[Rfam]
RNA sequence: UGUUACCUUAUGGUAGCCAAUUAAUGUUCCGGCAAUCUGAGAGGAACGCCUUUGGGUGAUUGCAAUAUCAAUGUUCCAAUAGUCUGAGAGGAACGCUUUCGGGUGACUACAUCAUCUGCCGUACCUGAAAAGGCAGACAGUAAAUACGCUGGGUAAACCC
Numbered sequence: 001u002g003u004u005a006c007c008u009u010a011u012g013g014u015a016g017c018c019a020a021u022u023a024a025u026g027u028u029c030c031g032g033c034a035a036u037c038u039g040a041g042a043g044g045a046a047c048g049c050c051u052u053u054g055g056g057u058g059a060u061u062g063c064a065a066u067a068u069c070a071a072u073g074u075u076c077c078a079a080u081a082g083u084c085u086g087a088g089a090g091g092a093a094c095g096c097u098u099u100c101g102g103g104u105g106a107c108u109a110c111a112u113c114a115u116c117u118g119c120c121g122u123a124c125c126u127g128a129a130a131a132g133g134c135a136g137a138c139a140g141u142a143a144a145u146a147c148g149c150u151g152g153g154u155a156a157a158c159c160c
Base pairs, nucleotide, nucleotide: 002017003016004015005014006013007012026047027046028045029044030043032063033062034061035060036059037058048057049056050055073094074093075092076091077090080109081108082107083106084105095104096103097102115136122155123154124153125152138151139150140149

A member of the RNA family "STAXI RNA" from Xenorhabdus koppenhoeferi, 160 nucleotides long. The family's consensus secondary structure is taken from published work. The source organism's lineage runs through Bacteria, Pseudomonadota, Gammaproteobacteria, Enterobacterales and Xenorhabdus.